[Rfam]
RNA sequence: UGCAGGGGCAGGACUUAGUUCUCUUUGUGAACAGUUCAGUGAAGGCCUGUGUUCACAGUGGCUAAGUUCCGCUCCUGAC
Numbered sequence: 001u002g003c004a005g006g007g008g009c010a011g012g013a014c015u016u017a018g019u020u021c022u023c024u025u026u027g028u029g030a031a032c033a034g035u036u037c038a039g040u041g042a043a044g045g046c047c048u049g050u051g052u053u054c055a056c057a058g059u060g061g062c063u064a065a066g067u068u069c070c071g072c073u074c075c076u077g078a079c
Base pairs, nucleotide, nucleotide: 011069012068013067014066015065016064017063018062019061020060027056028055029054030053031052032051033050
Rfam assigns this 79-nucleotide RNA from Cynoglossus semilaevis to the family "mir-27 microRNA precursor family". NCBI's taxonomy places the organism under Eukaryota, Vertebrata, Euteleosteomorpha, Pleuronectoidei, Cynoglossus. The match comes from Rfam's covariance-model search (67 bits). Gene Ontology terms of the family: miRNA-mediated post-transcriptional gene silencing and RISC complex.